[Rfam]
RNA sequence: AUUUUCAUAAGACAAUCUUAAUGUAUAUGCCGGGGAAUAGGGCCCGGGCGUCUCUACCAGGUUACCGUAAAUGACUUGACUACAUGAAGGAUGAGAAGAAGA
Numbered sequence: 001a002u003u004u005u006c007a008u009a010a011g012a013c014a015a016u017c018u019u020a021a022u023g024u025a026u027a028u029g030c031c032g033g034g035g036a037a038u039a040g041g042g043c044c045c046g047g048g049c050g051u052c053u054c055u056a057c058c059a060g061g062u063u064a065c066c067g068u069a070a071a072u073g074a075c076u077u078g079a080c081u082a083c084a085u086g087a088a089g090g091a092u093g094a095g096a097a098g099a100a101g102a
Base pairs, nucleotide, nucleotide: 018088019087021085022084023083024082025081029049030048031047033045034044035043058078059077060076061075062074063073064072
RNA: Purine riboswitch aptamer
Organism: Paenibacillus sp. JCM 10914